[Rfam]
RNA sequence: UGGAGGAUUGAGAAGGUUCAACAGCUUGUGUUGUGCUGUUACAACUGGUUAUAACCUCCUAAAGUAAGCGACAGCUCACAUAAUCAAGCCUCUCUGUUCCAUACAGAGCAGCUACGUGUGUUUGUUGGUCAUCUU
Dot-bracket structure: .(((((........((((.((((((.........))))))..))))........)))))...................((..(..(.(.....((((((......))))))...).).....)..))........
Numbered sequence: 001u002g003g004a005g006g007a008u009u010g011a012g013a014a015g016g017u018u019c020a021a022c023a024g025c026u027u028g029u030g031u032u033g034u035g036c037u038g039u040u041a042c043a044a045c046u047g048g049u050u051a052u053a054a055c056c057u058c059c060u061a062a063a064g065u066a067a068g069c070g071a072c073a074g075c076u077c078a079c080a081u082a083a084u085c086a087a088g089c090c091u092c093u094c095u096g097u098u099c100c101a102u103a104c105a106g107a108g109c110a111g112c113u114a115c116g117u118g119u120g121u122u123u124g125u126u127g128g129u130c131a132u133c134u135u
Stems, first nucleotide, its partner, number of pairs: 002059005015046004020040006079127002083123001086117001088115001094111006
Rfam assigns this 135-nucleotide RNA sequence from Salarias fasciatus to the family "Small nucleolar RNA SNORA47".
The literature on the family includes a 2001 paper in EMBO J by Huttenhofer et al., "RNomics: an experimental approach that identifies 201 candidates for novel, small, non-messenger RNAs in mouse".
Its family is annotated with nucleolus and RNA processing in the Gene Ontology.
It is annotated as an H/ACA-box small nucleolar RNA.